This 81-nucleotide RNA sequence from Danio rerio belongs to the Rfam family "mir-459 microRNA precursor family". Taxonomically the source falls in Danio (Eukaryota, Metazoa, Deuterostomia, Cypriniformes). The family's consensus secondary structure was predicted with RNAalifold. Rfam 15.1 lists 114 matches to the family in 95 species.
RNA sequence: CCUCUUGCUCUCAGUAACAAGGAUUCAUCCUGUUGUGGUACUCAAAUCCAACAGGGAAUCUCUGUUACUGGGGUUAAGGUU
Numbered sequence: 001c002c003u004c005u006u007g008c009u010c011u012c013a014g015u016a017a018c019a020a021g022g023a024u025u026c027a028u029c030c031u032g033u034u035g036u037g038g039u040a041c042u043c044a045a046a047u048c049c050a051a052c053a054g055g056g057a058a059u060c061u062c063u064g065u066u067a068c069u070g071g072g073g074u075u076a077a078g079g080u081u
Base pairs, nucleotide, nucleotide: 011071012070013069014068015067016066017065018064019063021061022060023059024058025057026056029055030054031053032052033051034050035049037048038047039046